A member of the RNA family "Bacterial RNase P class A" from Ramlibacter cellulosilyticus, 329 nucleotides long. About the family: Ribonuclease P (RNase P) is a ubiquitous endoribonuclease, found in archaea, bacteria and eukarya as well as chloroplasts and mitochondria. The family's consensus secondary structure is taken from published work. It scores 196 bits against the family's covariance model.

Nucleotides: 329
Stems, first nucleotide, its partner, number of pairs: 001325004006320005011314001012278007020048007053312003057309005062180004069211002074176005079093005094108001095106004109171002114169002116165002131154010184233004194224006205216004241261004246257004
Number, partner (000 for none) and nucleotide at each position: 001325g002324a003323a004322g005000c006320c007319c008318g009317c010316c011314a012278g013277g014276c015275c016274g017273u018272c019000g020048c021047u022046g023045g024044u025043g026042c027000a028000a029000g030000u031000g032000c033000c034000g035000a036000a037000a038000g039000g040000c041000c042026g043025c044024a045023c046022u047021g048020g049000a050000g051000g052000a053312a054311c055310g056000u057309c058308c059307g060306g061305a062180c063179u064178g065177c066000a067000c068000a069211g070210g071000g072000c073000a074176g075175c076174g077173u078172a079093g080092c081091a082090g083089g084000u085000a086000a087000c088000a089083c090082c091081u092080g093079u094108c095106c096105a097104c098103c099000g100000c101000g102000a103098g104097g105096u106095g107000a108094g109171g110170a111000u112000c113000a114169g115168a116165g117164c118000a119000a120000c121000a122000g123000a124000g125000a126000c127000g128000u129000a130000g131154u132153c133152c134151c135150g136149g137148a138147g139146g140145u141000g142000c143000a144000a145140g146139c147138u148137u149136c150135c151134g152133g153132g154131g155000g156000u157000g158000a159000a160000a161000c162000g163000g164117g165116c166000a167000a168115u169114c170110u171109c172078u173077a174076c175075g176074c177065g178064c179063a180062g181000c182000a183000a184233u185232a186231c187230c188000a189000a190000a191000u192000a193000g194224g195223c196222c197221a198220g199219c200000g201000u202000u203000g204000a205216c206215g207214u208213g209000g210070u211069c212000c213208c214207g215206c216205g217000g218000a219199g220198c221197u222196g223195g224194c225000g226000g227000g228000u229000a230187g231186g232185u233184a234000g235000c236000a237000u238000c239000g240000a241261g242260c243259c244258g245000u246257g247256g248255g249254g250000g251000c252000g253000a254249c255248c256247c257246c258244c259243g260242g261241c262000c263000c264000a265000g266000a267000a268000g269000a270000a271000u272018g273017a274016u275015g276014g277013u278012c279000a280000c281000g282000c283000c284000c285000g286000g287000g288000c289000a290000a291000c292000c293000g294000g295000g296000u297000g298000c299000a300000c301000a302000a303000g304000a305061u306060c307059c308058g309057g310055c311054g312053u313000a314011u315000c316010g317009g318008c319007g320006g321000a322004c323003u324002u325001c326000a327000c328000a329000c